[Rfam]
RNA sequence: AUGGCCUCUGCACAAGGAUGACCGCAAAUCCAUGGAGCAUUCCACGUUUUUCUGUUGGCUAGUACAGUCCAGUGGUGAGCUGACACUAAACUCCAGCCUUGGAAACAGGGUUGUCCAUGUGGAUGACUCUGUGUCAAAGGCAUGGGAACAAAA
Numbered sequence: 001a002u003g004g005c006c007u008c009u010g011c012a013c014a015a016g017g018a019u020g021a022c023c024g025c026a027a028a029u030c031c032a033u034g035g036a037g038c039a040u041u042c043c044a045c046g047u048u049u050u051u052c053u054g055u056u057g058g059c060u061a062g063u064a065c066a067g068u069c070c071a072g073u074g075g076u077g078a079g080c081u082g083a084c085a086c087u088a089a090a091c092u093c094c095a096g097c098c099u100u101g102g103a104a105a106c107a108g109g110g111u112u113g114u115c116c117a118u119g120u121g122g123a124u125g126a127c128u129c130u131g132u133g134u135c136a137a138a139g140g141c142a143u144g145g146g147a148a149c150a151a152a153a
Stems, first nucleotide, its partner, number of pairs: 005075002008072003017063001091146003095143001096141004101135002106131006114123003

Overview
Rfam assigns this 153-nucleotide RNA from Phyllostomus discolor to the family "Small nucleolar RNA SNORA65". On this family, see Huttenhofer et al., EMBO J 2001: "RNomics: an experimental approach that identifies 201 candidates for novel, small, non-messenger RNAs in mouse". The family has 14 seed sequences and 1,089 matches in Rfam 15.1. It scores 78 bits against the family's covariance model. About the family: U65 belongs to the H/ACA class of snoRNAs which are thought to guide the sites of modification of uridines to pseudouridines. Clan: SNORA65 clan. The family's RNA type in Rfam is H/ACA-box small nucleolar RNA.